Notes:
This 210-nucleotide RNA from Ectocarpus siliculosus belongs to the Rfam family "MIR8622 microRNA precursor family".
[Rfam]
RNA sequence: CGAAAUCUGCGCCGGAACCAAGCGGCAUCCAACAUUUGUCACAGCCGUGCUCACCGCCACGGACAGUAAACCCCUGAACGGGGUUGUCAGUAGUAGCUAUUAGUGGCAUCAGCUACUGCUGUAAACCCACAGUUCAGGAGAUUGGGGUCAGUGGCAGCGAGCACGGCUGCGACAAAUGAUGGAUACCGCUUGGUUCCGGCGCAGAUUUCG
Numbered sequence: 001c002g003a004a005a006u007c008u009g010c011g012c013c014g015g016a017a018c019c020a021a022g023c024g025g026c027a028u029c030c031a032a033c034a035u036u037u038g039u040c041a042c043a044g045c046c047g048u049g050c051u052c053a054c055c056g057c058c059a060c061g062g063a064c065a066g067u068a069a070a071c072c073c074c075u076g077a078a079c080g081g082g083g084u085u086g087u088c089a090g091u092a093g094u095a096g097c098u099a100u101u102a103g104u105g106g107c108a109u110c111a112g113c114u115a116c117u118g119c120u121g122u123a124a125a126c127c128c129a130c131a132g133u134u135c136a137g138g139a140g141a142u143u144g145g146g147g148u149c150a151g152u153g154g155c156a157g158c159g160a161g162c163a164c165g166g167c168u169g170c171g172a173c174a175a176a177u178g179a180u181g182g183a184u185a186c187c188g189c190u191u192g193g194u195u196c197c198g199g200c201g202c203a204g205a206u207u208u209c210g
Stems, first nucleotide, its partner, number of pairs: 001210025027184005034177007042169011054157001056155005062149003067144003071140001073138007082127002088121011
Lineage of the source: Eukaryota > Sar > Phaeophyceae > Ectocarpales > Ectocarpus.